[Rfam]
RNA sequence: GCAUUGACGGUUCUCCGAGCUUCUUAUCCUAAGUCUUUAGAUACGGGUCAUUAGCCGUGGUAAUAAUGCCACCGGGGUGAGUAAAGAAAUGCACUCACCUCCCGCACUUGGAAAGGUUAACAUGUCUCAACUAC
Numbered sequence: 001g002c003a004u005u006g007a008c009g010g011u012u013c014u015c016c017g018a019g020c021u022u023c024u025u026a027u028c029c030u031a032a033g034u035c036u037u038u039a040g041a042u043a044c045g046g047g048u049c050a051u052u053a054g055c056c057g058u059g060g061u062a063a064u065a066a067u068g069c070c071a072c073c074g075g076g077g078u079g080a081g082u083a084a085a086g087a088a089a090u091g092c093a094c095u096c097a098c099c100u101c102c103c104g105c106a107c108u109u110g111g112a113a114a115g116g117u118u119a120a121c122a123u124g125u126c127u128c129a130a131c132u133a134c
Base pairs, nucleotide, nucleotide: 006125011120012119015116016115019055020054021053024050026048027047028046029045033042034041035040057072058071059070060069061068075100076099077098078097079096080095081094082093085090101111102110
Dot-bracket structure: .....(....((..((..(((..(.((((...(((....)))..)))).)..))).(((((......)))))..((((((((..(....)..))))))))((.......))...))..))....).........